[Rfam]
BsrG: a 261-nucleotide sequence from Peribacillus cavernae. The family's RNA type in Rfam is small RNA. The source organism's lineage runs through Bacteria, Bacillati, Bacillota, Bacillaceae and Peribacillus. Its family is annotated with toxin activity and autolysis in the Gene Ontology.
RNA sequence: GCAAUAGUAUAGGAAAUCAAGGGUGGUCGGCACGCUUCCCCAUUUAAUAUGGGAGGGAGGUGAUGCCGUAUGACAGUAUUUGAAUCGCUUGUUACUAUGAUCUCGUUCGCGAGUUUGAUUGUGACGAUCCUGUCAUUUCACAAAAAAAACUAAAACCGCCCUUGAGUUUAGCAGGCUCCGGCGGUUUUAGUCGGUGAAGUUGUUGAUCCCCCUUGAAGGGAACGUUCUAUAGCGAGGCCGUUUGGUGUUCCAGCACCAACG
Numbered sequence: 001g002c003a004a005u006a007g008u009a010u011a012g013g014a015a016a017u018c019a020a021g022g023g024u025g026g027u028c029g030g031c032a033c034g035c036u037u038c039c040c041c042a043u044u045u046a047a048u049a050u051g052g053g054a055g056g057g058a059g060g061u062g063a064u065g066c067c068g069u070a071u072g073a074c075a076g077u078a079u080u081u082g083a084a085u086c087g088c089u090u091g092u093u094a095c096u097a098u099g100a101u102c103u104c105g106u107u108c109g110c111g112a113g114u115u116u117g118a119u120u121g122u123g124a125c126g127a128u129c130c131u132g133u134c135a136u137u138u139c140a141c142a143a144a145a146a147a148a149a150c151u152a153a154a155a156c157c158g159c160c161c162u163u164g165a166g167u168u169u170a171g172c173a174g175g176c177u178c179c180g181g182c183g184g185u186u187u188u189a190g191u192c193g194g195u196g197a198a199g200u201u202g203u204u205g206a207u208c209c210c211c212c213u214u215g216a217a218g219g220g221a222a223c224g225u226u227c228u229a230u231a232g233c234g235a236g237g238c239c240g241u242u243u244g245g246u247g248u249u250c251c252a253g254c255a256c257c258a259a260c261g
Stems, first nucleotide, its partner, number of pairs: 001233002004230002007227001009225001014207001017165007025156001027154001033062002036059005072134005078128001085100003108126002176199002209220003239261003243258006